[Rfam]
RNA: Bacillaceae-1 RNA
Organism: Oceanobacillus picturae
RNA sequence: AGGUAAUGAACUUCUGUUAAAAUCGUCCACGUCCUGUGGACAACACAGAAGUCACCACAUCCUGUGAA
Numbered sequence: 001a002g003g004u005a006a007u008g009a010a011c012u013u014c015u016g017u018u019a020a021a022a023u024c025g026u027c028c029a030c031g032u033c034c035u036g037u038g039g040a041c042a043a044c045a046c047a048g049a050a051g052u053c054a055c056c057a058c059a060u061c062c063u064g065u066g067a068a
Base pairs, nucleotide, nucleotide: 011051012050013049014048015047016046017045026040027039028038029037030036056066057065058064